[Rfam]
RNA sequence: UUGAGUUUGACUCCAGUCUGGCUCUGUGCGGCGACUUUGGAGGUGUAGUAUAGGUGGAAGCGCAAGCUCAAAUGAAAUACCACCACUCGGAACGUUGCUUCACUUAUCGAAUGAAGAGACCAAUGGUUGUUUUGCGCAGUCUUCGGGCUGUGCGCCGUCUAGGCUGGGCAUAAUUGUGGUGUUUCUUUCACCGCCACGGGAGGGGUGUUGGUUUUUUAUCCUUCUCUCCGUUUCUCCUUUUCUCUCUUUCUCCCUUUUUUUGGGCGUUUGAGGGCUGGUGACCCGUGGGCGCCCAGCCGUGCGGAACUACUGCGCCAACGGGGUGGGAACUUUUCGUUUCUUCUCCGGAGUCUUGUUUCGAGACAUCUGCCAGAUGGGGAGUUUGGCUGGGGCGGCAUAUCUGUUACACGACAACGCAGGUGUCCUAAGGCGAGCUCAGUGGGAACAGAAAUCUCACGUGGAACACAAGCGUAAAUGCUUGCUUGAUUAACGAUUUCCAGUACGAAUCGAGACUGCGAAAGCAAGGCCAGCGAUCCUUUGCGAAGAACAGGAAAUAUGAACAAAUCAUACCAGAGGUGUCAGAAUAAUUACCA
Number, nucleotide and partner (000 for none) at each position: 001u000002u593003g592004a589005g588006u587007u586008u000009g000010a382011c381012u380013c379014c000015a000016g000017u374018c373019u372020g371021g370022c369023u000024c000025u000026g103027u102028g101029c000030g099031g098032c097033g096034a095035c094036u092037u091038u090039g000040g088041a087042g086043g000044u000045g000046u000047a000048g000049u000050a000051u000052a000053g084054g083055u082056g081057g080058a000059a000060g067061c066062g000063c000064a000065a000066g061067c060068u000069c000070a000071a000072a000073u000074g000075a000076a000077a000078u000079a000080c057081c056082a055083c054084c053085a000086c042087u041088c040089g000090g038091a037092a036093c000094g035095u034096u033097g032098c031099u030100u000101c028102a027103c026104u000105u000106a000107u361108c360109g359110a358111a357112u000113g000114a000115a000116g000117a353118g352119a351120c350121c000122a000123a000124u000125g000126g159127u000128u157129g156130u000131u000132u000133u000134g000135c000136g000137c000138a000139g000140u000141c000142u000143u000144c000145g000146g000147g000148c000149u000150g000151u000152g000153c000154g000155c000156c129157g128158u000159c126160u000161a000162g000163g000164c000165u000166g000167g000168g000169c000170a000171u000172a000173a000174u347175u000176g345177u000178g343179g000180u000181g000182u000183u000184u000185c000186u000187u000188u000189c000190a000191c000192c000193g000194c000195c000196a000197c000198g000199g000200g000201a000202g000203g000204g000205g000206u000207g000208u000209u000210g000211g000212u000213u000214u000215u000216u000217u000218a000219u000220c000221c000222u000223u000224c000225u000226c000227u000228c000229c000230g000231u000232u000233u000234c000235u000236c000237c000238u000239u000240u000241u000242c000243u000244c000245u000246c000247u000248u000249u000250c000251u000252c000253c000254c000255u000256u000257u000258u000259u000260u000261u000262g000263g000264g000265c000266g000267u000268u000269u000270g000271a000272g000273g000274g000275c000276u000277g000278g000279u000280g000281a000282c000283c000284c000285g000286u000287g000288g000289g000290c000291g000292c000293c000294c000295a000296g000297c000298c000299g000300u000301g000302c000303g000304g000305a000306a000307c000308u000309a000310c000311u000312g000313c000314g000315c000316c000317a000318a000319c000320g000321g000322g000323g000324u000325g000326g000327g000328a000329a000330c000331u000332u000333u000334u000335c000336g000337u000338u000339u000340c000341u000342u000343c178344u000345c176346c000347g174348g000349a000350g120351u119352c118353u117354u000355g000356u000357u111358u110359c109360g108361a107362g000363a000364c000365a000366u000367c000368u000369g022370c021371c020372a019373g018374a017375u000376g000377g000378g000379g013380a012381g011382u010383u000384u000385g398386g396387c395388u394389g000390g000391g000392g000393c000394g388395g387396c386397a000398u385399a421400u420401c419402u418403g417404u416405u000406a000407c000408a000409c000410g000411a000412c000413a000414a000415c000416g404417c403418a402419g401420g400421u399422g000423u000424c526425c525426u000427a000428a000429g000430g482431c481432g480433a479434g478435c477436u462437c461438a000439g457440u456441g455442g454443g453444a452445a000446c000447a000448g000449a000450a000451a000452u444453c443454u442455c441456a440457c439458g000459u000460g000461g437462a436463a472464c471465a000466c000467a000468a000469g000470c000471g464472u463473a000474a000475a000476u000477g435478c434479u433480u432481g431482c430483u000484u000485g000486a000487u512488u511489a000490a000491c509492g508493a507494u506495u505496u504497c000498c000499a000500g000501u000502a000503c000504g496505a495506a494507u493508c492509g491510a000511g488512a487513c000514u523515g522516c521517g000518a000519a000520a000521g516522c515523a514524a000525g425526g424527c000528c000529a000530g000531c000532g000533a000534u000535c000536c575537u574538u573539u572540g571541c000542g000543a000544a000545g000546a000547a000548c000549a000550g000551g000552a000553a000554a000555u569556a568557u567558g566559a000560a000561c000562a000563a000564a000565u000566c558567a557568u556569a555570c000571c540572a539573g538574a537575g536576g000577u000578g000579u000580c000581a000582g000583a000584a000585u000586a007587a006588u005589u004590a000591c000592c003593a002